[Rfam]
RNA sequence: AGGCUCCGGAGAACAUUCAACGCUGUCGGUGAGUUUUGUGGUGAGGUGAAACCACCGACCGUUGCGUGUGCCCCGUGGCCG
Numbered sequence: 001a002g003g004c005u006c007c008g009g010a011g012a013a014c015a016u017u018c019a020a021c022g023c024u025g026u027c028g029g030u031g032a033g034u035u036u037u038g039u040g041g042u043g044a045g046g047u048g049a050a051a052c053c054a055c056c057g058a059c060c061g062u063u064g065c066g067u068g069u070g071c072c073c074c075g076u077g078g079c080c081g
Stems, first nucleotide, its partner, number of pairs: 003080001004078002007075002014068003018064005025059007033052004
Dot-bracket structure: ..(((.((.....(((.(((((..(((((((.((((............)))))))))))))))).))).....)).)).).
Annotation:
This 81-nucleotide RNA sequence from Podilymbus podiceps belongs to the Rfam family "mir-181 microRNA precursor family". A reference for the family is Ambros (2001), "microRNAs: tiny regulators with great potential", Cell. Gene Ontology terms of the family: RISC complex and miRNA-mediated post-transcriptional gene silencing. It scores 64 bits against the family's covariance model.